[Rfam]
RNA sequence: AUUCUGGUUGAUCCUGCCAGAGGUUACUGCUAUCGGUGUUCGACUAAGCCAUGCUAGUUAAAUGUUCUUCGUGAACAUAGCGGACUGCUCAGUAACACGUGGACAAUCUGCCCUUGGGUUCAGCAUAACCCCGGGAAACUGGGGAUAAUUCUGAAUAGAUCACACAUGCUGGAAUGCUUUGUGAUUUAAAGAUCCGUCGCCCAAGGAUGGGUCUGCGGCCUAUCAGGUUGUAGUGGGUCUAGAGUACCUACUAGCCAACGACGGGUACGGGUUGUGAGAGCAAGAGCCCGGAGAUGGAUUCUGAGACAUUAAUCCAGGCCCUACGGGGCGCAGCAGGCGCGAAACCUUUACACUGCGGGAAACCGCGAUAAGGGGACACCGAGUGCCAGCAUACAAUGCUGGCUGUCCACAUGUGUAAAUAGCAUGUGAUAGCAAGGGCCGGGCAAGACCGGUGCCAGCCGCCGCGGUAACACCGGCGGCCCGAGUGGUAAUCACUAUUAUUG
Numbered sequence: 001a002u003u004c005u006g007g008u009u010g011a012u013c014c015u016g017c018c019a020g021a022g023g024u025u026a027c028u029g030c031u032a033u034c035g036g037u038g039u040u041c042g043a044c045u046a047a048g049c050c051a052u053g054c055u056a057g058u059u060a061a062a063u064g065u066u067c068u069u070c071g072u073g074a075a076c077a078u079a080g081c082g083g084a085c086u087g088c089u090c091a092g093u094a095a096c097a098c099g100u101g102g103a104c105a106a107u108c109u110g111c112c113c114u115u116g117g118g119u120u121c122a123g124c125a126u127a128a129c130c131c132c133g134g135g136a137a138a139c140u141g142g143g144g145a146u147a148a149u150u151c152u153g154a155a156u157a158g159a160u161c162a163c164a165c166a167u168g169c170u171g172g173a174a175u176g177c178u179u180u181g182u183g184a185u186u187u188a189a190a191g192a193u194c195c196g197u198c199g200c201c202c203a204a205g206g207a208u209g210g211g212u213c214u215g216c217g218g219c220c221u222a223u224c225a226g227g228u229u230g231u232a233g234u235g236g237g238u239c240u241a242g243a244g245u246a247c248c249u250a251c252u253a254g255c256c257a258a259c260g261a262c263g264g265g266u267a268c269g270g271g272u273u274g275u276g277a278g279a280g281c282a283a284g285a286g287c288c289c290g291g292a293g294a295u296g297g298a299u300u301c302u303g304a305g306a307c308a309u310u311a312a313u314c315c316a317g318g319c320c321c322u323a324c325g326g327g328g329c330g331c332a333g334c335a336g337g338c339g340c341g342a343a344a345c346c347u348u349u350a351c352a353c354u355g356c357g358g359g360a361a362a363c364c365g366c367g368a369u370a371a372g373g374g375g376a377c378a379c380c381g382a383g384u385g386c387c388a389g390c391a392u393a394c395a396a397u398g399c400u401g402g403c404u405g406u407c408c409a410c411a412u413g414u415g416u417a418a419a420u421a422g423c424a425u426g427u428g429a430u431a432g433c434a435a436g437g438g439c440c441g442g443g444c445a446a447g448a449c450c451g452g453u454g455c456c457a458g459c460c461g462c463c464g465c466g467g468u469a470a471c472a473c474c475g476g477c478g479g480c481c482c483g484a485g486u487g488g489u490a491a492u493c494a495c496u497a498u499u500a501u502u503g
Stems, first nucleotide, its partner, number of pairs: 004020005022493010033382009042340001048338003052335003057081003062078006088293003098217007107210002112206007120154004129144006159185006166178001168177002191198002219265003226256003231253008268290004272283004295316006318329004346372001348371003354367005385403008407432001408428007436482006449476004458465002
Archaeal small subunit ribosomal RNA: a 503-nucleotide part of an RNA from Methanohalophilus mahii.